RNA sequence: UCGUGUGUUCCGGGGGCGGUGGAAUUCCGCACCGGCGGUGACAGUCCGCGACCCGACCACCUCGGUGGCCGGUUGACUCGGUGAAAUUCCGAGACCGACGGUGAGAGUCCGGAUGGGAGGAACACGCGA
Numbered sequence: 001u002c003g004u005g006u007g008u009u010c011c012g013g014g015g016g017c018g019g020u021g022g023a024a025u026u027c028c029g030c031a032c033c034g035g036c037g038g039u040g041a042c043a044g045u046c047c048g049c050g051a052c053c054c055g056a057c058c059a060c061c062u063c064g065g066u067g068g069c070c071g072g073u074u075g076a077c078u079c080g081g082u083g084a085a086a087u088u089c090c091g092a093g094a095c096c097g098a099c100g101g102u103g104a105g106a107g108u109c110c111g112g113a114u115g116g117g118a119g120g121a122a123c124a125c126g127c128g129a
Base pairs, nucleotide, nucleotide: 003127004126005125006124007123008122009121010120017029018028019027031108032107033097034096035049036048037047038046044095045094053072054071077093078092079091080090081089099111100110101109